[Rfam]
RNA sequence: GCCUGGGGGAGAGCCACUGUGAGGUUACCUGAAGGGUGCAUAGUCAGUCACCCGUGUGUGCCUUGCGGGAAGGUCUGAGACGUGCAGCAGCAAACUCUCGUGAUGAGAGGCUCCACUAACAGGAGUGCAGGCUAACAGACAAGACUCUGAUGGUCGCACCACACACCCGGCGAUCGGGAUUGAUUCUCGUGAGGGGGAGGUGUGCCGUCAGAAUGAGAUGGUCUGUGCUGAGCGCGUAAAGCGAGAUUGGCUGUCAAAACUUAAUUCAGACUACUACCCAGGCGGC
Numbered sequence: 001g002c003c004u005g006g007g008g009g010a011g012a013g014c015c016a017c018u019g020u021g022a023g024g025u026u027a028c029c030u031g032a033a034g035g036g037u038g039c040a041u042a043g044u045c046a047g048u049c050a051c052c053c054g055u056g057u058g059u060g061c062c063u064u065g066c067g068g069g070a071a072g073g074u075c076u077g078a079g080a081c082g083u084g085c086a087g088c089a090g091c092a093a094a095c096u097c098u099c100g101u102g103a104u105g106a107g108a109g110g111c112u113c114c115a116c117u118a119a120c121a122g123g124a125g126u127g128c129a130g131g132c133u134a135a136c137a138g139a140c141a142a143g144a145c146u147c148u149g150a151u152g153g154u155c156g157c158a159c160c161a162c163a164c165a166c167c168c169g170g171c172g173a174u175c176g177g178g179a180u181u182g183a184u185u186c187u188c189g190u191g192a193g194g195g196g197g198a199g200g201u202g203u204g205c206c207g208u209c210a211g212a213a214u215g216a217g218a219u220g221g222u223c224u225g226u227g228c229u230g231a232g233c234g235c236g237u238a239a240a241g242c243g244a245g246a247u248u249g250g251c252u253g254u255c256a257a258a259a260c261u262u263a264a265u266u267c268a269g270a271c272u273a274c275u276a277c278c279c280a281g282g283c284g285g286c
Stems, first nucleotide, its partner, number of pairs: 001286003007279003017249001020065005034053005039047001075269005085230004095109005110126005127226007146212003
The record is a 286-nucleotide sequence from Schistosoma mansoni, which matches "Nuclear RNase P" in Rfam. Its family is annotated with ribonuclease P activity, tRNA processing and ribonuclease P complex in the Gene Ontology. Ribonuclease P (RNase P) is a ubiquitous endoribonuclease, found in archaea, bacteria and eukarya as well as chloroplasts and mitochondria. Its best characterised activity is the generation of mature 5'-ends of tRNAs by cleaving the 5'-leader elements of precursor-tRNAs. Cellular RNase Ps are ribonucleoproteins. RNA from bacterial RNase Ps retains its catalytic activity in the absence of the protein subunit, i.e. it is a ribozyme. Isolated eukaryotic and archaeal RNase P RNA has not been shown to retain its catalytic function, but is still essential for the catalytic activity of the holoenzyme. Although the archaeal and eukaryotic holoenzyme s have a much greater protein content than the bacterial ones, the RNA cores from all the three lineages are homologous -- helices corresponding to P1, P2, P3, P4, and P10/11 are common to all cellular RNase P RNAs. Yet, there is considerable sequence variation, particularly among the eukaryotic RNAs. Rfam classes the family as a ribozyme. Pairs were carried over by alignment from the consensus structure, which is taken from published work.